[Rfam]
RNA sequence: ACUGCCAAAGGCACACCCGUUGAAAGGCGGGGUCGCAAAGCUUCCGGUCUAACGGCAACGUCCACACGUUGCCCACGACAGCGGGGCCGCCAGAA
Numbered sequence: 001a002c003u004g005c006c007a008a009a010g011g012c013a014c015a016c017c018c019g020u021u022g023a024a025a026g027g028c029g030g031g032g033u034c035g036c037a038a039a040g041c042u043u044c045c046g047g048u049c050u051a052a053c054g055g056c057a058a059c060g061u062c063c064a065c066a067c068g069u070u071g072c073c074c075a076c077g078a079c080a081g082c083g084g085g086g087c088c089g090c091c092a093g094a095a
Stems, first nucleotide, its partner, number of pairs: 003092002011036002016031006034081001040087003044084003047079003
A member of the RNA family "c-di-GMP-I-GGC riboswitch aptamer" from Rhizobacter gummiphilus, 95 nucleotides long. Its family is annotated with cyclic-di-GMP binding in the Gene Ontology. NCBI's taxonomy places the organism under Bacteria, Pseudomonadati, Pseudomonadota, Betaproteobacteria, Rhizobacter. The match comes from Rfam's covariance-model search (60 bits).